[Rfam]
RNA sequence: UUUAUCGCAUAACUCCGAGCUUGUUUAGUCUAAGUUCCUCUUUGGUGAAAAUACCUUGGUAAGGAAUAUGACGGCAAUGCCAAUAACGCUAUUUGUUAUUCAGGGAUACGUUGGAAACGGCUUGUCCUCUCCAUUUUAGAAAGGUGUAUCAUGCAAUCGAUU
Numbered sequence: 001u002u003u004a005u006c007g008c009a010u011a012a013c014u015c016c017g018a019g020c021u022u023g024u025u026u027a028g029u030c031u032a033a034g035u036u037c038c039u040c041u042u043u044g045g046u047g048a049a050a051a052u053a054c055c056u057u058g059g060u061a062a063g064g065a066a067u068a069u070g071a072c073g074g075c076a077a078u079g080c081c082a083a084u085a086a087c088g089c090u091a092u093u094u095g096u097u098a099u100u101c102a103g104g105g106a107u108a109c110g111u112u113g114g115a116a117a118c119g120g121c122u123u124g125u126c127c128u129c130u131c132c133a134u135u136u137u138a139g140a141a142a143g144g145u146g147u148a149u150c151a152u153g154c155a156a157u158c159g160a161u162u
Base pairs, nucleotide, nucleotide: 003156006153012147013146015144016143019080020079022077025074026073028072029071030070034067035066036065037064038063039062082100083099084098085097086096087095088094103128104127105126106125107124108123110121111120112119113118129139130138
RNA: Molybdenum/Tungsten riboswitch aptamer (Moco RNA motif)
Organism: Rodentibacter trehalosifermentans